[Rfam]
RNA sequence: UGUGAUAUAGGAGUCAUAAGUCGGAAAUGCGUGCAUGCUUGCAUGAGUAGCAUUUCGACUUUAUGACCCGAACAGAAAUGAGGAAAUAGCAAUUUACGAAGUAAAUUAGCGUUUUCCGAAUUUCUGUAGAAUUGCGAGAAUGGCGUAUGCCAUGAAGCAAUUCGUAUAUCACA
Numbered sequence: 001u002g003u004g005a006u007a008u009a010g011g012a013g014u015c016a017u018a019a020g021u022c023g024g025a026a027a028u029g030c031g032u033g034c035a036u037g038c039u040u041g042c043a044u045g046a047g048u049a050g051c052a053u054u055u056c057g058a059c060u061u062u063a064u065g066a067c068c069c070g071a072a073c074a075g076a077a078a079u080g081a082g083g084a085a086a087u088a089g090c091a092a093u094u095u096a097c098g099a100a101g102u103a104a105a106u107u108a109g110c111g112u113u114u115u116c117c118g119a120a121u122u123u124c125u126g127u128a129g130a131a132u133u134g135c136g137a138g139a140a141u142g143g144c145g146u147a148u149g150c151c152a153u154g155a156a157g158c159a160a161u162u163c164g165u166a167u168a169u170c171a172c173a
Base pairs, nucleotide, nucleotide: 001173002172003171004170005169006168007167013067014066015065018061019060020059021058022057023056025055026054027053028052029051030050034045035044036043037042072127073126074125075124076123077122078121079120082117083116084115085114089110090109091107092106093105094104095103096102097101129163130162131161132160133159134158135157140153141152142151143150